Rfam assigns this 75-nucleotide RNA from Streptomyces formicae to the family "ASpks TB sRNA". A search with the family's covariance model found it, with a score of 72 bits. Lineage of the source: Bacteria > Actinomycetes > Kitasatosporales > Streptomycetaceae > Streptomyces. The family's consensus secondary structure is taken from published work.
RNA sequence: CUUGAUGGAGCCGAGCCAGAGGGACCGGUCGUCGGGUCGGCCCUUGCCGUAGGUGGCGAGCAGCGCCUGGGCCUC
Numbered sequence: 001c002u003u004g005a006u007g008g009a010g011c012c013g014a015g016c017c018a019g020a021g022g023g024a025c026c027g028g029u030c031g032u033c034g035g036g037u038c039g040g041c042c043c044u045u046g047c048c049g050u051a052g053g054u055g056g057c058g059a060g061c062a063g064c065g066c067c068u069g070g071g072c073c074u075c
Base pairs, nucleotide, nucleotide: 015025017023032070033069038065039064043060044059045058047056048055049054